[Rfam]
RNA sequence: GAAGCGGAUGCCGAAAAGCUUAAUAGAGUAGGCC
Numbered sequence: 001g002a003a004g005c006g007g008a009u010g011c012c013g014a015a016a017a018g019c020u021u022a023a024u025a026g027a028g029u030a031g032g033c034c
Stems, first nucleotide, its partner, number of pairs: 002021004010033003
About this RNA: DUF805b RNA: a 34-nucleotide sequence. Rfam classes the family as a cis-regulatory element.